[Rfam]
RNA sequence: UACUACCAAAUCCUAUCUCCACCUCCACGUGGUUAUCCACUGGGAGCUAUUUCCUAAUGAAAAGCUGCAGACGGGGAAGG
Numbered sequence: 001u002a003c004u005a006c007c008a009a010a011u012c013c014u015a016u017c018u019c020c021a022c023c024u025c026c027a028c029g030u031g032g033u034u035a036u037c038c039a040c041u042g043g044g045a046g047c048u049a050u051u052u053c054c055u056a057a058u059g060a061a062a063a064g065c066u067g068c069a070g071a072c073g074g075g076g077a078a079g080g
Stems, first nucleotide, its partner, number of pairs: 012080003016076004021033003045066004050061002053059001
Rfam assigns this 80-nucleotide sequence from Hermetia illucens to the family "drz-agam-1 ribozyme". The organism belongs to Hermetia, within Eukaryota. The family has 7 seed sequences and 10,507 matches in Rfam 15.1. Pairs were carried over by alignment from the consensus structure, which is taken from published work. The match comes from Rfam's covariance-model search (37 bits). The literature on the family includes a 2009 paper in Science by Webb et al., "Widespread occurrence of self-cleaving ribozymes". Its family is annotated with catalytic activity in the Gene Ontology.